A member of the RNA family "Potassium channel RNA editing signal" from Pomatostomus ruficeps, 114 nucleotides long.
[Rfam]
RNA sequence: GUGGGCUAUGGGGACAUGAGACCUGUCACUGUGGGGGGCAAGAUUGUGGGCUCCUUGUGUGCCAUUGCAGGUGUGCUGACCAUUGCCCUCCCUGUCCCUGUCAUUGUGUCCAAC
Numbered sequence: 001g002u003g004g005g006c007u008a009u010g011g012g013g014a015c016a017u018g019a020g021a022c023c024u025g026u027c028a029c030u031g032u033g034g035g036g037g038g039c040a041a042g043a044u045u046g047u048g049g050g051c052u053c054c055u056u057g058u059g060u061g062c063c064a065u066u067g068c069a070g071g072u073g074u075g076c077u078g079a080c081c082a083u084u085g086c087c088c089u090c091c092c093u094g095u096c097c098c099u100g101u102c103a104u105u106g107u108g109u110c111c112a113a114c
Base pairs, nucleotide, nucleotide: 001114002113004111005110007108008107009106010105011104013102014101015100016099018097020095037077038076039075040074049063050062051061

Pairs were carried over by alignment from the consensus structure, which is taken from published work. From the family's description: This family represents a group of sequences related to the human potassium channel Kv1.1 hairpin element which directs the efficient modification of an adenosine to inosine by an adenosine deaminase acting on RNA (ADAR). The family's RNA type in Rfam is cis-regulatory element.